[Rfam]
About this RNA
The record is a 79-nucleotide RNA from Salmo trutta, which matches "mir-31 microRNA precursor family" in Rfam. Its Rfam clan is "mir-31 microRNA precursor family". Rfam links the family to the GO terms gene silencing by miRNA and RISC complex. The source organism's lineage runs through Eukaryota, Craniata, Vertebrata, Clupeocephala and Salmo. A search with the family's covariance model found it, with a score of 52 bits. For this family Rfam cites "The small RNA profile during Drosophila melanogaster development" (Aravin et al., Dev Cell, 2003). The base pairs follow the family's consensus structure, which was predicted with RNAalifold.
RNA sequence: AACGAGGAAGGAUGCCAGAUGCAGGGAUAGCAGGAAGCAGGUAGCCUGCUAUCCCUGCAUCUGGCAUCCUUCCUCGUUC
Numbered sequence: 001a002a003c004g005a006g007g008a009a010g011g012a013u014g015c016c017a018g019a020u021g022c023a024g025g026g027a028u029a030g031c032a033g034g035a036a037g038c039a040g041g042u043a044g045c046c047u048g049c050u051a052u053c054c055c056u057g058c059a060u061c062u063g064g065c066a067u068c069c070u071u072c073c074u075c076g077u078u079c
Stems, first nucleotide, its partner, number of pairs: 005074017023056009